[Rfam]
RNA sequence: UGAUAUCCCUCAACCACCCCUGAAGAUCCCCAGGUAGGUGAGGAAAUAGUCAACGGGAUC
Numbered sequence: 001u002g003a004u005a006u007c008c009c010u011c012a013a014c015c016a017c018c019c020c021u022g023a024a025g026a027u028c029c030c031c032a033g034g035u036a037g038g039u040g041a042g043g044a045a046a047u048a049g050u051c052a053a054c055g056g057g058a059u060c
Base pairs, nucleotide, nucleotide: 006045008043009042010041011040014037016035017034018033025060026059027058028057029056031055